[Rfam]
RNA: Lysine riboswitch aptamer
RNA sequence: UGAUGGGGUGGAGGUUGCAAUAAUUAAUAGUAGCUUGCCUGAAACCAAAUGGGGUUGAUGAUGGUAUGCCGAAAGGAAUUAUUGCCGAAGCAAGGGAGAUCCAUUUAUUCUCCCUUGCUGGGUUUACAUCAAACAGGUGUAAAACUGUCACAGAUAUCAUCUGUGGAGGGCUGCGUUAAGA
Numbered sequence: 001u002g003a004u005g006g007g008g009u010g011g012a013g014g015u016u017g018c019a020a021u022a023a024u025u026a027a028u029a030g031u032a033g034c035u036u037g038c039c040u041g042a043a044a045c046c047a048a049a050u051g052g053g054g055u056u057g058a059u060g061a062u063g064g065u066a067u068g069c070c071g072a073a074a075g076g077a078a079u080u081a082u083u084g085c086c087g088a089a090g091c092a093a094g095g096g097a098g099a100u101c102c103a104u105u106u107a108u109u110c111u112c113c114c115u116u117g118c119u120g121g122g123u124u125u126a127c128a129u130c131a132a133a134c135a136g137g138u139g140u141a142a143a144a145c146u147g148u149c150a151c152a153g154a155u156a157u158c159a160u161c162u163g164u165g166g167a168g169g170g171c172u173g174c175g176u177u178a179a180g181a
Stems, first nucleotide, its partner, number of pairs: 006176001008174004017085009033069002036066004089119011120146002123143008148166007